[Rfam]
RNA sequence: AUACACAAAGGUGAUGGUGCUCCACCUAAUUGAACCGCUUGCAAAAGCUGAUGACGCCUGCCCGAUA
Numbered sequence: 001a002u003a004c005a006c007a008a009a010g011g012u013g014a015u016g017g018u019g020c021u022c023c024a025c026c027u028a029a030u031u032g033a034a035c036c037g038c039u040u041g042c043a044a045a046a047g048c049u050g051a052u053g054a055c056g057c058c059u060g061c062c063c064g065a066u067a
Stems, first nucleotide, its partner, number of pairs: 010026004016058004021053001037048004
RNA: Fluoride riboswitch aptamer (crcB RNA motif)
Organism: Mucilaginibacter galii